[Rfam]
RNA: MIR2118 microRNA precursor family
RNA sequence: GACAUGAAAAGAAGGAAAUGAGAGCCUAAGAGCAAUGGGCAUGGGAACAUGGAGGAAAGCAUAGCCUAUGCUUACCUCUUCGAGGUGAUCUUGCAUCAAGCUUUCCUGAUGCCUCCCAUGCCUAUUGUUCUUUGGUGCUUCUUCCAUUUCCUUUUUGCU
Numbered sequence: 001g002a003c004a005u006g007a008a009a010a011g012a013a014g015g016a017a018a019u020g021a022g023a024g025c026c027u028a029a030g031a032g033c034a035a036u037g038g039g040c041a042u043g044g045g046a047a048c049a050u051g052g053a054g055g056a057a058a059g060c061a062u063a064g065c066c067u068a069u070g071c072u073u074a075c076c077u078c079u080u081c082g083a084g085g086u087g088a089u090c091u092u093g094c095a096u097c098a099a100g101c102u103u104u105c106c107u108g109a110u111g112c113c114u115c116c117c118a119u120g121c122c123u124a125u126u127g128u129u130c131u132u133u134g135g136u137g138c139u140u141c142u143u144c145c146a147u148u149u150c151c152u153u154u155u156u157g158c159u
Stems, first nucleotide, its partner, number of pairs: 010149003015144003020140003025135002028132007036124011048111003052107001054106007